[Rfam]
RNA sequence: GUGGCUUCAGAUCUGGAAUUUAUUGUUGCAUUCACUUUUCAAAUGUGUUUGUAGUGUUUAAUUGAAGCCUAUAAUUGUGUUCCCCUCGCUAUCCACUACUGCAAUUUCGAUGCUGUACUUGGACGUCGGGGAACUAAAUUU
Number, nucleotide and partner (000 for none) at each position: 001g072002u071003g069004g068005c067006u000007u000008c064009a063010g000011a000012u061013c000014u000015g000016g059017a058018a000019u000020u000021u000022a000023u000024u000025g000026u053027u000028g000029c000030a049031u000032u047033c000034a046035c045036u000037u000038u000039u000040c000041a000042a000043a000044u000045g035046u034047g032048u000049u030050u000051g000052u000053a026054g000055u000056g000057u000058u017059u016060a000061a012062u000063u009064g008065a000066a000067g005068c004069c003070u000071a002072u001073a000074a000075u000076u000077g000078u000079g134080u133081u132082c131083c130084c129085c128086u000087c125088g124089c000090u000091a000092u123093c122094c121095a120096c000097u000098a000099c000100u000101g113102c112103a111104a000105u000106u000107u000108c000109g000110a000111u103112g102113c101114u000115g000116u000117a000118c000119u000120u095121g094122g093123a092124c088125g087126u000127c000128g085129g084130g083131g082132a081133a080134c079135u000136a000137a000138a000139u000140u000141u000
Rfam assigns this 141-nucleotide RNA from Lathyrus oleraceus to the family "Small nucleolar RNA snoR136". The literature on the family includes a 2009 paper in Nucleic Acids Res by Chen and Wu, "Mining small RNA sequencing data: a new approach to identify small nucleolar RNAs in Arabidopsis". Pairs were carried over by alignment from the consensus structure, which was predicted with mfold. It is annotated as an H/ACA-box small nucleolar RNA. Its family is annotated with nucleolus and RNA processing in the Gene Ontology.